[Rfam]
The record is a 162-nucleotide RNA sequence from Streptomyces silvensis, which matches "Streptomyces sRNA scr5239" in Rfam. On this family, see Vockenhuber and Suess, Microbiology 2012: "Streptomyces coelicolor sRNA scr5239 inhibits agarase expression by direct base pairing to the dagA coding region". The base pairs follow the family's consensus structure, which is taken from published work. It scores 103 bits against the family's covariance model.
RNA sequence: GCCCCGCUCUUCCCGCACAGAAGAGCGGAUCGAGGAGCCGGCGCUCUCUGCCCUGACCGCGCCGGGUUCUCCCGAAUCGGCGGCUGGUACCGCACAUUCCGGUCGUCGAUGCACCUGAAGGGCUGCGGUGUUGGGGUCGGGUUGAGGGUCCCGCCCCGGCGC
Numbered sequence: 001g002c003c004c005c006g007c008u009c010u011u012c013c014c015g016c017a018c019a020g021a022a023g024a025g026c027g028g029a030u031c032g033a034g035g036a037g038c039c040g041g042c043g044c045u046c047u048c049u050g051c052c053c054u055g056a057c058c059g060c061g062c063c064g065g066g067u068u069c070u071c072c073c074g075a076a077u078c079g080g081c082g083g084c085u086g087g088u089a090c091c092g093c094a095c096a097u098u099c100c101g102g103u104c105g106u107c108g109a110u111g112c113a114c115c116u117g118a119a120g121g122g123c124u125g126c127g128g129u130g131u132u133g134g135g136g137u138c139g140g141g142u143u144g145a146g147g148g149u150c151c152c153g154c155c156c157c158g159g160c161g162c
Stems, first nucleotide, its partner, number of pairs: 004028003008024005032071005038065004043060002045056002076110007085101003112130004120124001133156003138153004